Shown here is a 266-nucleotide RNA from Anaerotignum lactatifermentans, a member of the family "Bacterial large signal recognition particle RNA". NCBI's taxonomy places the organism under Bacteria, Bacillota, Clostridia, Lachnospirales, Anaerotignum lactatifermentans. The base pairs follow the family's consensus structure, which is taken from published work. It scores 154 bits against the family's covariance model.
RNA sequence: CCGUGCUAGCCGGGGGAUUAGCGGUACCCUGCACCCACAAUCCGCUACAGUGGGGGUGACGUCUGCUUUCGGCACCGUCCAAAAAUGGUCUGCCCUUUGGAAGGGGUGUUGAAGUUCAAGUCUUGCACAACAGGAGCCUGUGAACCGUGUCAGGGUCGGAAGGCAGCAGCACUAAGCAGUCAACUUCUCGUGUGUCGCAAGGUCGCUUGGAUGGAGCUUCAGAAGGAGGUAACGCAUGGUUGGCAGUGACAACAGCAGAUGCACGG
Numbered sequence: 001c002c003g004u005g006c007u008a009g010c011c012g013g014g015g016g017a018u019u020a021g022c023g024g025u026a027c028c029c030u031g032c033a034c035c036c037a038c039a040a041u042c043c044g045c046u047a048c049a050g051u052g053g054g055g056g057u058g059a060c061g062u063c064u065g066c067u068u069u070c071g072g073c074a075c076c077g078u079c080c081a082a083a084a085a086u087g088g089u090c091u092g093c094c095c096u097u098u099g100g101a102a103g104g105g106g107u108g109u110u111g112a113a114g115u116u117c118a119a120g121u122c123u124u125g126c127a128c129a130a131c132a133g134g135a136g137c138c139u140g141u142g143a144a145c146c147g148u149g150u151c152a153g154g155g156u157c158g159g160a161a162g163g164c165a166g167c168a169g170c171a172c173u174a175a176g177c178a179g180u181c182a183a184c185u186u187c188u189c190g191u192g193u194g195u196c197g198c199a200a201g202g203u204c205g206c207u208u209g210g211a212u213g214g215a216g217c218u219u220c221a222g223a224a225g226g227a228g229g230u231a232a233c234g235c236a237u238g239g240u241u242g243g244c245a246g247u248g249a250c251a252a253c254a255g256c257a258g259a260u261g262c263a264c265g266g
Stems, first nucleotide, its partner, number of pairs: 001266006009057003012030004017025003034054005062259006071250001073248003079243004085237003091231002095226004104220001105218003114212008122201005128192002131190001133188003136181001138179004147172004155164003